[Rfam]
RNA sequence: CCUUGUGACACGGGGUGCCCGCUCGCCGGGCUGAGAACAAACCCGUUGAACCUGAUCUAGUUCGUGCUAGCGAAGGGAUGUCGCGCAUAUGACGC
Numbered sequence: 001c002c003u004u005g006u007g008a009c010a011c012g013g014g015g016u017g018c019c020c021g022c023u024c025g026c027c028g029g030g031c032u033g034a035g036a037a038c039a040a041a042c043c044c045g046u047u048g049a050a051c052c053u054g055a056u057c058u059a060g061u062u063c064g065u066g067c068u069a070g071c072g073a074a075g076g077g078a079u080g081u082c083g084c085g086c087a088u089a090u091g092a093c094g095c
Stems, first nucleotide, its partner, number of pairs: 006083005011045004016039001017031005051076003057070004
Dot-bracket structure: .....(((((((((.((((((.....))))).......)..)))).....(((...((((......))))...)))..)))))............

A member of the RNA family "TPP riboswitch aptamer (THI element)" from Antricoccus suffuscus, 95 nucleotides long. Rfam describes the family as follows. Vitamin B(1) in its active form thiamin pyrophosphate (TPP) is an essential coenzyme that is synthesised by coupling of pyrimidine and thiazole moieties in bacteria. Rfam links the family to the GO term thiamine pyrophosphate binding. Pairs were carried over by alignment from the consensus structure, which is taken from published work. Lineage of the source: Bacteria > Bacillati > Geodermatophilales > Antricoccaceae > Antricoccus.